The family of this 75-nucleotide RNA from Cnephaeus nilssonii is "mir-9223 microRNA precursor family". The family's consensus secondary structure was predicted with RNAalifold. Taxonomically the source falls in Cnephaeus (Eukaryota, Craniata, Gnathostomata, Sarcopterygii). Its family is annotated with miRNA-mediated post-transcriptional gene silencing and RISC complex in the Gene Ontology.
[Rfam]
RNA sequence: GGCAGUUCUCGGGUGAUGCACCCCAGAUUCGGGCUCCCUCCUCUCUGCUUCUGGGAGCGUCACUGGAGAACCACC
Numbered sequence: 001g002g003c004a005g006u007u008c009u010c011g012g013g014u015g016a017u018g019c020a021c022c023c024c025a026g027a028u029u030c031g032g033g034c035u036c037c038c039u040c041c042u043c044u045c046u047g048c049u050u051c052u053g054g055g056a057g058c059g060u061c062a063c064u065g066g067a068g069a070a071c072c073a074c075c
Stems, first nucleotide, its partner, number of pairs: 002074001005071006012064006019057001021055003025052003030047004